[Rfam]
RNA sequence: UACCGCCUUGAAGCAGCGGUUGAGUUCGCUCUUGUUGCUUCAUACCUCCCUGUUGGACUUGGCCGAGCGAAAGCUCGGCCUUUUUU
Numbered sequence: 001u002a003c004c005g006c007c008u009u010g011a012a013g014c015a016g017c018g019g020u021u022g023a024g025u026u027c028g029c030u031c032u033u034g035u036u037g038c039u040u041c042a043u044a045c046c047u048c049c050c051u052g053u054u055g056g057a058c059u060u061g062g063c064c065g066a067g068c069g070a071a072a073g074c075u076c077g078g079c080c081u082u083u084u085u086u
Stems, first nucleotide, its partner, number of pairs: 009042011061080008
This 86-nucleotide RNA sequence from Pseudorhodobacter sp. PARRP1 belongs to the Rfam family "Singlet oxygen resistance RNA X". The match comes from Rfam's covariance-model search (50 bits). The literature on the family includes a 2016 paper in RNA Biol by Peng et al., "Regulation of a polyamine transporter by the conserved 3' UTR-derived sRNA SorX confers resistance to singlet oxygen and organic hydroperoxides in Rhodobacter sphaeroides". Its family is annotated with response to photooxidative stress in the Gene Ontology. About the family: SorX (RSs2461)like SorY is a singlet oxygen induced sRNA that counteracts oxidative stress by targeting mRNA for a transporter in Rhodobacter. Taxonomically the source falls in Pseudorhodobacter (Bacteria, Pseudomonadati, Pseudomonadota, Rhodobacterales). By type it is a small RNA. The family has 8 seed sequences and 528 matches in Rfam 15.1.